The family of this 152-nucleotide part of an RNA from Trichia sordida is "Eukaryotic small subunit ribosomal RNA". The family is grouped with related families in Rfam's "SSU clan". The literature on the family includes a 2001 paper in Science by Yusupov et al., "Crystal structure of the ribosome at 5.5 A resolution". Taxonomically the source falls in Trichia (Eukaryota, Eumycetozoa, Trichiida, Trichiidae). The sequence is in the family's curated seed alignment.
[Rfam]
RNA sequence: CCGCCCGUCGCUCCUACCGAUUGGGCUGCGAGGUGAGUUGCUUGGAGCUAAACCGGGGGCAACCCCGGCGCGAAGAGAGGCGAACCCUGCGGCCUAGAGGAAGGAGAAGUCGUAACAAGGUAUCCGUAUGUGAACCUCCGAAAGGAUCACCU
Numbered sequence: 001c002c003g004c005c006c007g008u009c010g011c012u013c014c015u016a017c018c019g020a021u022u023g024g025g026c027u028g029c030g031a032g033g034u035g036a037g038u039u040g041c042u043u044g045g046a047g048c049u050a051a052a053c054c055g056g057g058g059g060c061a062a063c064c065c066c067g068g069c070g071c072g073a074a075g076a077g078a079g080g081c082g083a084a085c086c087c088u089g090c091g092g093c094c095u096a097g098a099g100g101a102a103g104g105a106g107a108a109g110u111c112g113u114a115a116c117a118a119g120g121u122a123u124c125c126g127u128a129u130g131u132g133a134a135c136c137u138c139c140g141a142a143a144g145g146a147u148c149a150c151c152u
Stems, first nucleotide, its partner, number of pairs: 001119001003116001006112002009109001011106005017100002021096001023095008032086003037081003041077003047071002053068005121144001123142001125140002128137001130135001